[Rfam]
Shown here is an 80-nucleotide RNA sequence from Agrobacterium fabrum, a member of the family "Makes More Granules Regulator RNA (mmgR)". The base pairs follow the family's consensus structure. Rfam describes the family as follows. SuhB later renamed mmgR (makes more granules regulator) was a putative non-coding RNA found multiple times in the Agrobacterium tumefaciens genome and related alpha-proteobacteria. Its family is annotated with DNA-templated transcription, termination, response to nitrogen compound and protein binding in the Gene Ontology. By type it is a small RNA. The source organism's lineage runs through Bacteria, Pseudomonadati, Pseudomonadota, Agrobacterium and Agrobacterium fabrum.
Nucleotides: 080
Base pairs, nucleotide, nucleotide: 008018010016011015041065042064043063044062045061046059047058048057049056
Number, partner (000 for none) and nucleotide at each position: 001000a002000g003000c004000u005000g006000u007000u008018c009000c010016c011015c012000u013000c014000u015011g016010g017000a018008g019000g020000u021000u022000u023000u024000u025000g026000a027000c028000c029000u030000u031000c032000a033000c034000a035000c036000u037000u038000a039000a040000a041065g042064g043063g044062c045061c046059c047058u048057g049056g050000a051000u052000c053000u054000a055000u056049c057048c058047g059046g060000c061045g062044g063043c064042c065041c066000u067000c068000u069000u070000u071000u072000u073000u074000u075000a076000c077000c078000c079000g080000c